[Rfam]
RNA sequence: GUCGCGGACCGGGCCCCUCUGACGACCGAUCGAUCGGUCGUGAUGUCGGAUCGACACC
Dot-bracket structure: .....((.((((.........((((((((....))))))))....)))).))......
RNA: terC RNA